[Rfam]
RNA: Ascomycota telomerase RNA, nucleotides 1144 to 1534
Organism: Dactylonectria estremocensis
RNA sequence: AUUCAAACAGAAGGAGCCGCUUGGUCAGGUCCAGAUGUAUCCGGAAUGUAUUGUUUACGUCGACUUCUGGUGGGGUUGUGUCGACGAAAGCUUCGGACUUUGUAGGGUUGACAGUUCGCAAACAGCUUAUUCACUGGCAACUGCUCACCUUCUGAAGCGGCUCUGACGGCUGACGCCCAAAGCAGUGUCGGGACCCAUCUCGAGUUGGCGUCAAAGUUUAGUGCUUGUCUGGUGCUGCUAAGGACCCGGCCAUCCGUUAGGUGGAUGAUUGUGAGAGCUAGUGUCGAAGUUGGGUUGUUGAAUUGGAUCUUUGGACAGGCCGCAUCGGAUGAGGCAGUCCUGGUUGUCCUCUCGCCUGAAAUGGUGUGGAGGACAACCCCCCACAGCGAGG
Numbered sequence: 001a002u003u004c005a006a007a008c009a010g011a012a013g014g015a016g017c018c019g020c021u022u023g024g025u026c027a028g029g030u031c032c033a034g035a036u037g038u039a040u041c042c043g044g045a046a047u048g049u050a051u052u053g054u055u056u057a058c059g060u061c062g063a064c065u066u067c068u069g070g071u072g073g074g075g076u077u078g079u080g081u082c083g084a085c086g087a088a089a090g091c092u093u094c095g096g097a098c099u100u101u102g103u104a105g106g107g108u109u110g111a112c113a114g115u116u117c118g119c120a121a122a123c124a125g126c127u128u129a130u131u132c133a134c135u136g137g138c139a140a141c142u143g144c145u146c147a148c149c150u151u152c153u154g155a156a157g158c159g160g161c162u163c164u165g166a167c168g169g170c171u172g173a174c175g176c177c178c179a180a181a182g183c184a185g186u187g188u189c190g191g192g193a194c195c196c197a198u199c200u201c202g203a204g205u206u207g208g209c210g211u212c213a214a215a216g217u218u219u220a221g222u223g224c225u226u227g228u229c230u231g232g233u234g235c236u237g238c239u240a241a242g243g244a245c246c247c248g249g250c251c252a253u254c255c256g257u258u259a260g261g262u263g264g265a266u267g268a269u270u271g272u273g274a275g276a277g278c279u280a281g282u283g284u285c286g287a288a289g290u291u292g293g294g295u296u297g298u299u300g301a302a303u304u305g306g307a308u309c310u311u312u313g314g315a316c317a318g319g320c321c322g323c324a325u326c327g328g329a330u331g332a333g334g335c336a337g338u339c340c341u342g343g344u345u346g347u348c349c350u351c352u353c354g355c356c357u358g359a360a361a362u363g364g365u366g367u368g369g370a371g372g373a374c375a376a377c378c379c380c381c382c383a384c385a386g387c388g389a390g391g
Stems, first nucleotide, its partner, number of pairs: 192212003195208003214226004